[Rfam]
RNA sequence: GGGGCGGUGAUGAAUGGCGCAGGGGUACGGACCUCAGCCAAUGAUGGGGGCUGAGCGUCGGUGACCGUAGGCGGCUCGGCUGGCGUGUGGCCGGCCGUGCCGGGGGAGUCACCGCGCGAUACAAUCGCCACAGUCUGAGCCCC
Numbered sequence: 001g002g003g004g005c006g007g008u009g010a011u012g013a014a015u016g017g018c019g020c021a022g023g024g025g026u027a028c029g030g031a032c033c034u035c036a037g038c039c040a041a042u043g044a045u046g047g048g049g050g051c052u053g054a055g056c057g058u059c060g061g062u063g064a065c066c067g068u069a070g071g072c073g074g075c076u077c078g079g080c081u082g083g084c085g086u087g088u089g090g091c092c093g094g095c096c097g098u099g100c101c102g103g104g105g106g107a108g109u110c111a112c113c114g115c116g117c118g119a120u121a122c123a124a125u126c127g128c129c130a131c132a133g134u135c136u137g138a139g140c141c142c143c
Stems, first nucleotide, its partner, number of pairs: 001143005
Source information
Small nucleolar RNA SNORD94: a 143-nucleotide sequence from Albula glossodonta. The base pairs follow the family's consensus structure, which was predicted with RNAalifold. Its family is annotated with RNA processing and nucleolus in the Gene Ontology. Rfam classes the family as a C/D-box small nucleolar RNA.